The family of this 34-nucleotide RNA is "L31-Firmicutes ribosomal protein leader". It is one of the family's seed sequences. The family is grouped with related families in Rfam's "Ribosomal Protein L31 Leader clan".
[Rfam]
RNA sequence: CUCUGGCUUAGUAAAUAAUCCAGGGCAAAAGGAG
Numbered sequence: 001c002u003c004u005g006g007c008u009u010a011g012u013a014a015a016u017a018a019u020c021c022a023g024g025g026c027a028a029a030a031g032g033a034g
Base pairs, nucleotide, nucleotide: 001025002024003023004022005021008018009017010016